UnaL2 LINE 3' element: a 54-nucleotide RNA from Oncorhynchus tshawytscha. The family's consensus secondary structure is taken from published work. Rfam classes the family as a cis-regulatory element.
RNA sequence: AACACACUUUACUGUAAGUCGCUCUGGAUAAGAGAGUCUGUUAAAUGACAAACA
Numbered sequence: 001a002a003c004a005c006a007c008u009u010u011a012c013u014g015u016a017a018g019u020c021g022c023u024c025u026g027g028a029u030a031a032g033a034g035a036g037u038c039u040g041u042u043a044a045a046u047g048a049c050a051a052a053c054a
Stems, first nucleotide, its partner, number of pairs: 013043001014041003020036001022034004